[Rfam]
RNA: Bacterial RNase P class A
RNA sequence: CCAGACGGUCGGACGGUCGCUGUUCUGCAUUUUAUGCAGGAGGGAGGAAAGUCCGGGCUCCACGGGAGAACGGUGCCAGCUAACAGCUGGCGAGGGUGACCUUAGGGAAAGUGCCACAGAAAACAAACCGCCUUCCGGGCGAUGCUCCGUGGGAAACCAUGGGACAAAGCUGAAGGUAAGGGUGAAACGGUGCGGUAAGAGCGCACCGCUCCUCUGGCAACAGAGGGGGCAUGGUAAACCCCACCGGGAGCAAGACCGAAUAGGAGCGGCGGAAAUCCGCGAGGAUUUCAGGGGUUCUCCCGCCCCGCCGCUCGGGUUGGUUGCGUGAGGCAUGCCGCGAGGCGUGUCCCAGACGAAUGACCGUCUAGGCUCUUCGGAGCUGGACAGAACCCGGCUUACAGACCGUCUGGCAUU
Numbered sequence: 001c002c003a004g005a006c007g008g009u010c011g012g013a014c015g016g017u018c019g020c021u022g023u024u025c026u027g028c029a030u031u032u033u034a035u036g037c038a039g040g041a042g043g044g045a046g047g048a049a050a051g052u053c054c055g056g057g058c059u060c061c062a063c064g065g066g067a068g069a070a071c072g073g074u075g076c077c078a079g080c081u082a083a084c085a086g087c088u089g090g091c092g093a094g095g096g097u098g099a100c101c102u103u104a105g106g107g108a109a110a111g112u113g114c115c116a117c118a119g120a121a122a123a124c125a126a127a128c129c130g131c132c133u134u135c136c137g138g139g140c141g142a143u144g145c146u147c148c149g150u151g152g153g154a155a156a157c158c159a160u161g162g163g164a165c166a167a168a169g170c171u172g173a174a175g176g177u178a179a180g181g182g183u184g185a186a187a188c189g190g191u192g193c194g195g196u197a198a199g200a201g202c203g204c205a206c207c208g209c210u211c212c213u214c215u216g217g218c219a220a221c222a223g224a225g226g227g228g229g230c231a232u233g234g235u236a237a238a239c240c241c242c243a244c245c246g247g248g249a250g251c252a253a254g255a256c257c258g259a260a261u262a263g264g265a266g267c268g269g270c271g272g273a274a275a276u277c278c279g280c281g282a283g284g285a286u287u288u289c290a291g292g293g294g295u296u297c298u299c300c301c302g303c304c305c306c307g308c309c310g311c312u313c314g315g316g317u318u319g320g321u322u323g324c325g326u327g328a329g330g331c332a333u334g335c336c337g338c339g340a341g342g343c344g345u346g347u348c349c350c351a352g353a354c355g356a357a358u359g360a361c362c363g364u365c366u367a368g369g370c371u372c373u374u375c376g377g378a379g380c381u382g383g384a385c386a387g388a389a390c391c392c393g394g395c396u397u398a399c400a401g402a403c404c405g406u407c408u409g410g411c412a413u414u
Stems, first nucleotide, its partner, number of pairs: 001410010011399001012365007020044002023041006049397003053394005058250004066301001068299002071246005076090005091105001092103004106241002111239002113235003128181002130177006137170001189207006208230001209228008254322004264313006292306003296302001329348008